[Rfam]
The record is a 59-nucleotide RNA sequence from Cryobacterium fucosi, which matches "msiK RNA" in Rfam. It is annotated as a cis-regulatory element.
RNA sequence: CGCUAAAAUCCCAUCACUACGGAUCGUCCGGCACGUACCUGCCGGUGAAGGAGAAUACA
Numbered sequence: 001c002g003c004u005a006a007a008a009u010c011c012c013a014u015c016a017c018u019a020c021g022g023a024u025c026g027u028c029c030g031g032c033a034c035g036u037a038c039c040u041g042c043c044g045g046u047g048a049a050g051g052a053g054a055a056u057a058c059a
Stems, first nucleotide, its partner, number of pairs: 010051002014048003028045006